[Rfam]
Rfam assigns this 74-nucleotide sequence from Erwinia tracheiphila to the family "tpke11".
In Yersinia located in ICR upstream dnaJ (chaperone)gene. Has temperature responsive RNA structure.
It is annotated as a small RNA.
A search with the family's covariance model found it, with a score of 47 bits.
The organism belongs to Erwinia, within Bacteria.
The literature on the family includes a 2001 paper in Curr Biol by Rivas et al., "Computational identification of noncoding RNAs in E. coli by comparative genomics".
RNA sequence: GAGCACUGAUUAAACCCACGGGCGUAGGAGUUUCUCCACGCCCGUGAACGUAUGCUAAGGGCAGGAUACCAGAA
Numbered sequence: 001g002a003g004c005a006c007u008g009a010u011u012a013a014a015c016c017c018a019c020g021g022g023c024g025u026a027g028g029a030g031u032u033u034c035u036c037c038a039c040g041c042c043c044g045u046g047a048a049c050g051u052a053u054g055c056u057a058a059g060g061g062c063a064g065g066a067u068a069c070c071a072g073a074a
Base pairs, nucleotide, nucleotide: 003015017046018045019044020043021042022041023040024039027037028036029035